[Rfam]
RNA sequence: CCGGCUUAAACUCAAUGAGUAAGGAAACUAAAGCUCUACCUGACAAGUAGAGCUACCCAGUAGGUCAAGUUGACCUAUGGGAAAUUAAUUUGUGAAGGAUGUGGAAUGGCCAUCUGUUUUGAAACCUACUACUUUAAGGGUGACUAAUUAGGGGGCCGGUCCCCGC
Numbered sequence: 001c002c003g004g005c006u007u008a009a010a011c012u013c014a015a016u017g018a019g020u021a022a023g024g025a026a027a028c029u030a031a032a033g034c035u036c037u038a039c040c041u042g043a044c045a046a047g048u049a050g051a052g053c054u055a056c057c058c059a060g061u062a063g064g065u066c067a068a069g070u071u072g073a074c075c076u077a078u079g080g081g082a083a084a085u086u087a088a089u090u091u092g093u094g095a096a097g098g099a100u101g102u103g104g105a106a107u108g109g110c111c112a113u114c115u116g117u118u119u120u121g122a123a124a125c126c127u128a129c130u131a132c133u134u135u136a137a138g139g140g141u142g143a144c145u146a147a148u149u150a151g152g153g154g155g156c157c158g159g160u161c162c163c164c165g166c
Stems, first nucleotide, its partner, number of pairs: 005023004033053007054083001056081003101166004108161004114155001115150002118147002121144001124141004
U12 minor spliceosomal RNA: a 166-nucleotide RNA from Bremia lactucae. The family's RNA type in Rfam is spliceosomal small nuclear RNA.